[Rfam]
RNA sequence: CUCCCCAUGUCCUUGAAGGGAGUGGUUUAACUACCGCUCCCGUAGACGGCAUGGGGAG
Numbered sequence: 001c002u003c004c005c006c007a008u009g010u011c012c013u014u015g016a017a018g019g020g021a022g023u024g025g026u027u028u029a030a031c032u033a034c035c036g037c038u039c040c041c042g043u044a045g046a047c048g049g050c051a052u053g054g055g056g057a058g
Stems, first nucleotide, its partner, number of pairs: 002056004008051004013046002018041009
A member of the RNA family "Sulfolobus sRNA133" from Sulfolobus sp. SCGC AB-777_L09, 58 nucleotides long.
About the family: This RNA has structural homologues in 3 archaeon Sulfolobus genomes: tokodaii, acidocalarius and solfotaricus.
Rfam 15.1 lists 27 matches to the family in 10 species.
It scores 67 bits against the family's covariance model.
The family's RNA type in Rfam is small RNA.
The source organism's lineage runs through Archaea, Thermoproteota, Thermoprotei, Sulfolobales and Sulfolobus.